[Rfam]
RNA sequence: AAUUCCGAGGAGCGUUGCGACAAAGAGAUUCCUCUUUGCCAGGCUCGGAUCAUCAACACUGCGCUCACGUUAC
Numbered sequence: 001a002a003u004u005c006c007g008a009g010g011a012g013c014g015u016u017g018c019g020a021c022a023a024a025g026a027g028a029u030u031c032c033u034c035u036u037u038g039c040c041a042g043g044c045u046c047g048g049a050u051c052a053u054c055a056a057c058a059c060u061g062c063g064c065u066c067a068c069g070u071u072a073c
Stems, first nucleotide, its partner, number of pairs: 004049005021038006
The record is a 73-nucleotide sequence from Massilia sp., which matches "SAH (S-adenosyl-L-homocysteine) riboswitch aptamer" in Rfam. The organism belongs to Massilia, within Bacteria. On this family, see Wang et al., Mol Cell 2008: "Riboswitches that sense S-adenosylhomocysteine and activate genes involved in coenzyme recycling".